The family of this 359-nucleotide part of an RNA from Haloplanus salinarum is "Archaeal large subunit ribosomal RNA".
[Rfam]
RNA sequence: CGGGAGCAACCGGCGUUAGGGAAUUCGGCAAGUUAGUCCCGUACGUUCGCAAUAAGGGAUGCCUGCUCUGGAGAAGAGCAGGUCGCAGUGACUCGGGCGCUCCGACUGUCUAGUAACAACAUAGGUGACCGCAAAUCCGCAAGGACUCGUACGGUCACUGAAUCCUGCCCAGUGCGGGUAUCUGAACACCGAGUACAAUCGGACGAAGGACCCGUCAACGGCGGGGGUAACUAUGACCCUCUUAAGGUAGCGUAGUACCUUGCCGCUUCAGUAGCGGCUUGCAUGAAUGGAUCAACGAGAGCGCCACUGUCCCAACGCUGGGCCCGGUGAACUGUACGUUCCAGUGCGGAGUCUGGAGA
Number, nucleotide and partner (000 for none) at each position: 001c326002g325003g324004g323005a000006g000007c000008a000009a000010c321011c320012g319013g318014c317015g316016u315017u314018a000019g312020g311021g310022a000023a000024u000025u000026c000027g000028g000029c000030a000031a000032g000033u000034u000035a000036g060037u059038c058039c057040c056041g000042u000043a000044c000045g050046u000047u000048c000049g000050c045051a000052a000053u000054a000055a000056g040057g039058g038059a037060u036061g083062c082063c081064u080065g079066c078067u077068c076069u075070g000071g000072a000073g000074a000075a069076g068077a067078g066079c065080a064081g063082g062083u061084c088085g000086c000087a000088g084089u000090g000091a000092c000093u000094c000095g000096g305097g304098c303099g302100c301101u300102c299103c297104g296105a000106c000107u121108g120109u119110c000111u000112a000113g000114u000115a000116a000117c000118a000119a109120c108121a107122u000123a000124g159125g158126u157127g156128a155129c154130c153131g152132c149133a000134a000135a000136u145137c144138c143139g000140c000141a000142a000143g138144g137145a136146c000147u000148c000149g132150u000151a000152c131153g130154g129155u128156c127157a126158c125159u124160g000161a000162a292163u291164c290165c289166u000167g222168c221169c220170c000171a000172g219173u218174g215175c214176g213177g212178g211179u000180a000181u210182c209183u208184g000185a000186a000187c000188a000189c202190c201191g200192a199193g000194u000195a000196c000197a000198a000199u192200c191201g190202g189203a000204c000205g000206a000207a000208g183209g182210a181211c178212c177213c176214g175215u174216c000217a000218a173219c172220g169221g168222c167223g241224g240225g239226g238227g237228u236229a000230a000231c000232u000233a000234u000235g000236a228237c227238c226239c225240u224241c223242u246243u000244a000245a000246g242247g000248u000249a000250g000251c000252g000253u000254a000255g000256u000257a000258c000259c000260u000261u000262g278263c277264c276265g275266c274267u273268u000269c000270a000271g000272u000273a267274g266275c265276g264277g263278c262279u000280u000281g000282c000283a000284u000285g000286a000287a000288u000289g165290g164291a163292u162293c000294a000295a000296c104297g103298a000299g102300a101301g100302c099303g098304c097305c096306a000307c000308u000309g000310u021311c020312c019313c000314a017315a016316c015317g014318c013319u012320g011321g010322g000323c004324c003325c002326g001327g000328u000329g000330a000331a000332c000333u000334g000335u000336a000337c000338g000339u000340u357341c356342c355343a354344g353345u000346g000347c000348g000349g000350a000351g000352u000353c344354u343355g342356g341357a340358g000359a000